RNA sequence: CGGAGAGGACGACCUCCCCCUUUCGGGAUGACAAGCCGGGACGACCCGG
Numbered sequence: 001c002g003g004a005g006a007g008g009a010c011g012a013c014c015u016c017c018c019c020c021u022u023u024c025g026g027g028a029u030g031a032c033a034a035g036c037c038g039g040g041a042c043g044a045c046c047c048g049g
Stems, first nucleotide, its partner, number of pairs: 002019002005016004036049005